[Rfam]
RNA sequence: AGUUCUUAAAUGCUUAAUUUCCGUUAUGGAAAACGGGGGAACCAAAACAUGAUGCCGCAUUUGGUGUGAGAACCGAAUGAGGGAUCAUCGGGGUGAAUCCUUAGGACAUGCCGCCAUGUCCCAAGGUAGGGCGUCUCUCACAGCCCGAAUCCGUCAGCUAACCUCGUAAGCGCAUGUGAAGAGAGGG
Numbered sequence: 001a002g003u004u005c006u007u008a009a010a011u012g013c014u015u016a017a018u019u020u021c022c023g024u025u026a027u028g029g030a031a032a033a034c035g036g037g038g039g040a041a042c043c044a045a046a047a048c049a050u051g052a053u054g055c056c057g058c059a060u061u062u063g064g065u066g067u068g069a070g071a072a073c074c075g076a077a078u079g080a081g082g083g084a085u086c087a088u089c090g091g092g093g094u095g096a097a098u099c100c101u102u103a104g105g106a107c108a109u110g111c112c113g114c115c116a117u118g119u120c121c122c123a124a125g126g127u128a129g130g131g132c133g134u135c136u137c138u139c140a141c142a143g144c145c146c147g148a149a150u151c152c153g154u155c156a157g158c159u160a161a162c163c164u165c166g167u168a169a170g171c172g173c174a175u176g177u178g179a180a181g182a183g184a185g186g187g
Stems, first nucleotide, its partner, number of pairs: 011172004018032005033167006043090001091152003099126004129146004
This 187-nucleotide RNA sequence from Paenibacillus sp. yr247 belongs to the Rfam family "c-di-AMP riboswitch aptamer (ydaO/yuaA leader)". The source organism's lineage runs through Bacteria, Bacillati, Bacilli, Paenibacillaceae and Paenibacillus.